RNA sequence: UUAACCGAGGAACGUUGCGAAGCUUUUUCUUAAAGCUCUAGGCUCGGUUAGGGGGAUGACAAAUCUCUCAAACGGCGUUCAUCUACA
Numbered sequence: 001u002u003a004a005c006c007g008a009g010g011a012a013c014g015u016u017g018c019g020a021a022g023c024u025u026u027u028u029c030u031u032a033a034a035g036c037u038c039u040a041g042g043c044u045c046g047g048u049u050a051g052g053g054g055g056a057u058g059a060c061a062a063a064u065c066u067c068u069c070a071a072a073c074g075g076c077g078u079u080c081a082u083c084u085a086c087a
Stems, first nucleotide, its partner, number of pairs: 002050007021037006
The record is an 87-nucleotide RNA from Methylotenera sp., which matches "SAH (S-adenosyl-L-homocysteine) riboswitch aptamer" in Rfam. Lineage of the source: Bacteria > Pseudomonadati > Pseudomonadota > Methylophilaceae > Methylotenera. The family's consensus secondary structure is taken from published work. Gene Ontology terms of the family: regulation of gene expression and S-adenosylhomocysteine metabolic process. The literature on the family includes a 2008 paper in Mol Cell by Wang et al., "Riboswitches that sense S-adenosylhomocysteine and activate genes involved in coenzyme recycling". A search with the family's covariance model found it, with a score of 58 bits.